[Rfam]
RNA sequence: UACGCGAUGCCGAAUUCGGGUCGCGGAGACAAAAAAACUUGCUGAUUUUUUCAGGAGAUUUGAAUCAUGAGU
Numbered sequence: 001u002a003c004g005c006g007a008u009g010c011c012g013a014a015u016u017c018g019g020g021u022c023g024c025g026g027a028g029a030c031a032a033a034a035a036a037a038c039u040u041g042c043u044g045a046u047u048u049u050u051u052c053a054g055g056a057g058a059u060u061u062g063a064a065u066c067a068u069g070a071g072u
Stems, first nucleotide, its partner, number of pairs: 001027001003025006010019003033059001038057003042054004
The record is a 72-nucleotide RNA from Pseudomonas brassicacearum, which matches "Repression of heat shock gene expression (ROSE) element" in Rfam. A reference for the family is Krajewski et al. (2013), "Short ROSE-Like RNA Thermometers Control IbpA Synthesis in Pseudomonas Species", PLoS One. The base pairs follow the family's consensus structure. NCBI's taxonomy places the organism under Bacteria, Pseudomonadati, Gammaproteobacteria, Pseudomonadales, Pseudomonas brassicacearum subsp. brassicacearum.